[Rfam]
RNA sequence: GCUGAGCUCUGUCACGUGGGCUUGUAAUCCUAGUGGAGGCUCUAAAGUGAUGGAACGUUGGCCAUGCUCGUUAGGUCGGGUUCAGUUUGGCUCUUAUCUGGCCCGCCCGUUCCAAGCUAGGAGUUGAGCCGAGGCAUCCUAGUGAAGACCUGGGUGUCUUGGCUCCUAGAGUCGAAGGGCACAGCGUGAGGCUGGUCUCACAGAGCAGCGAUCACCUUCCGCUCCUGACAGUGGAAGGACUACGGGCCGGUGCCAUCUGGAUCUGCAUGGCCUGAUGAGCUGGUCCUAACUGAACUAUCACUUUU
Number, nucleotide and partner (000 for none) at each position: 001g040002c039003u038004g023005a022006g021007c020008u019009c018010u000011g000012u000013c000014a000015c000016g000017u000018g009019g008020g007021c006022u005023u004024g000025u000026a000027a000028u037029c036030c035031u000032a000033g000034u000035g030036g029037a028038g003039g002040c001041u000042c000043u000044a304045a303046a302047g301048u300049g299050a298051u297052g296053g295054a000055a000056c292057g291058u289059u288060g287061g284062c283063c282064a281065u000066g000067c000068u278069c277070g276071u275072u274073a273074g272075g271076u270077c269078g264079g263080g262081u261082u260083c259084a258085g257086u000087u000088u255089g254090g253091c000092u252093c000094u000095u000096a000097u000098c250099u249100g248101g247102c246103c245104c244105g243106c000107c238108c237109g000110u236111u235112c234113c233114a232115a000116g229117c000118u227119a226120g225121g224122a223123g222124u221125u000126g165127a164128g163129c162130c161131g160132a159133g158134g157135c156136a155137u154138c153139c152140u000141a000142g149143u148144g000145a000146a000147g000148a143149c142150c000151u000152g139153g138154g137155u136156g135157u134158c133159u132160u131161g130162g129163c128164u127165c126166c171167u000168a000169g000170a000171g166172u000173c000174g219175a218176a217177g216178g215179g000180c000181a000182c000183a212184g000185c210186g209187u208188g000189a000190g000191g000192c203193u202194g201195g000196u000197c000198u000199c000200a000201c194202a193203g192204a000205g000206c000207a000208g187209c186210g185211a000212u183213c000214a000215c178216c177217u176218u175219c174220c000221g124222c123223u122224c121225c120226u119227g118228a000229c116230a000231g000232u114233g113234g112235a111236a110237g108238g107239a000240c000241u000242a000243c105244g104245g103246g102247c101248c100249g099250g098251u000252g092253c090254c089255a088256u000257c085258u084259g083260g082261a081262u080263c079264u078265g000266c000267a000268u000269g077270g076271c075272c074273u073274g072275a071276u070277g069278a068279g000280c000281u064282g063283g062284u061285c000286c000287u060288a059289a058290c000291u057292g056293a000294a000295c053296u052297a051298u050299c049300a048301c047302u046303u045304u044305u000